[Rfam]
RNA sequence: GGUCAUGAGUUCCGACGUCAAGCCCCGGCUCGUCGGACGGCAACCCCCCGCGCGGGUGGGUGCCCCGGGUGAGGACCAGGCCUGUCGCAGCCGCGGCGGACAACACGCGAAC
Numbered sequence: 001g002g003u004c005a006u007g008a009g010u011u012c013c014g015a016c017g018u019c020a021a022g023c024c025c026c027g028g029c030u031c032g033u034c035g036g037a038c039g040g041c042a043a044c045c046c047c048c049c050g051c052g053c054g055g056g057u058g059g060g061u062g063c064c065c066c067g068g069g070u071g072a073g074g075a076c077c078a079g080g081c082c083u084g085u086c087g088c089a090g091c092c093g094c095g096g097c098g099g100a101c102a103a104c105a106c107g108c109g110a111a112c
Base pairs, nucleotide, nucleotide: 001077002076003075004074009038011037012036013035014034015033016032021030022029039064040063041062044060045059046058048055049054080101082099083098084097085096086095087094088093